RNA sequence: ACUAUGGAACCGAGGGCGGAUCUCGGCAUCUCCAUAAAAAUGUUUGAUAACAUUUUUUGGGGAUGUUUUUAGUAUUCGACAUAGU
Numbered sequence: 001a002c003u004a005u006g007g008a009a010c011c012g013a014g015g016g017c018g019g020a021u022c023u024c025g026g027c028a029u030c031u032c033c034a035u036a037a038a039a040a041u042g043u044u045u046g047a048u049a050a051c052a053u054u055u056u057u058u059g060g061g062g063a064u065g066u067u068u069u070u071a072g073u074a075u076u077c078g079a080c081a082u083a084g085u
Stems, first nucleotide, its partner, number of pairs: 001085006010026006027065007
Mitochondrion-encoded tmRNA: an 85-nucleotide RNA sequence from Reclinomonas americana. Rfam classes the family as a non-coding RNA gene. The sequence is in the family's curated seed alignment. Pairs were carried over by alignment from the consensus structure. Taxonomically the source falls in Reclinomonas (Eukaryota, Jakobea, Jakobida, Histionina). For this family Rfam cites "A second eukaryotic group with mitochondrion-encoded tmRNA: in silico identification and experimental confirmation" (Hafez et al., RNA Biol, 2013). Its family is annotated with RNA catabolic process in the Gene Ontology.